[Rfam]
RNA sequence: GCAGCGGCCUUUGUUGCCUCUGUUUCGCCCACAGUUUUGGGUGAGUUAACUGAUAGAAGGAAGAUAUCGAUG
Numbered sequence: 001g002c003a004g005c006g007g008c009c010u011u012u013g014u015u016g017c018c019u020c021u022g023u024u025u026c027g028c029c030c031a032c033a034g035u036u037u038u039g040g041g042u043g044a045g046u047u048a049a050c051u052g053a054u055a056g057a058a059g060g061a062a063g064a065u066a067u068c069g070a071u072g
Base pairs, nucleotide, nucleotide: 002022003021004020006018007017008016026043027042028041029040030039031038
Record summary: The family of this 72-nucleotide sequence from Pantoea sp. aB is "osmY RNA". The sequence is in the family's curated seed alignment. NCBI's taxonomy places the organism under Bacteria, Gammaproteobacteria, Enterobacterales, Erwiniaceae, Pantoea.